Annotation
t44 RNA: a 132-nucleotide RNA sequence from Candidatus Regiella insecticola.
[Rfam]
RNA sequence: CGCCUAAUGUGUCAAGAACACACACAAAUCGUCACAUACACCGGGGUGCUCAGGAAUUUAUCACUUAGUUUAAUAAAAAAUAGGUGGAAGGUAUUUACUGGGUCGGCGUUAUGGGAUUUGUGGAGGCAUAAC
Number, nucleotide and partner (000 for none) at each position: 001c000002g000003c000004c000005u000006a000007a000008u000009g000010u000011g000012u000013c000014a000015a000016g000017a000018a000019c000020a000021c000022a000023c122024a121025c120026a119027a118028a117029u116030c115031g000032u000033c000034a000035c113036a112037u111038a110039c000040a000041c106042c105043g104044g000045g000046g000047u000048g103049c102050u101051c100052a099053g000054g000055a000056a000057u000058u000059u000060a000061u000062c000063a000064c000065u000066u000067a000068g000069u000070u000071u000072a000073a000074u000075a000076a000077a000078a000079a000080a000081u000082a000083g000084g000085u000086g000087g000088a000089a000090g000091g000092u000093a000094u000095u000096u000097a000098c000099u052100g051101g050102g049103u048104c043105g042106g041107c000108g000109u000110u038111a037112u036113g035114g000115g030116a029117u028118u027119u026120g025121u024122g023123g000124a000125g000126g000127c000128a000129u000130a000131a000132c000
Lineage of the source: Bacteria > Pseudomonadota > Enterobacteriaceae > Candidatus Regiella > Candidatus Regiella insecticola. Rfam classes the family as a small RNA. The literature on the family includes a 2002 paper in Nucleic Acids Res by Tjaden et al., "Transcriptome analysis of Escherichia coli using high-density oligonucleotide probe arrays". Pairs were carried over by alignment from the consensus structure, which was predicted with LocARNA.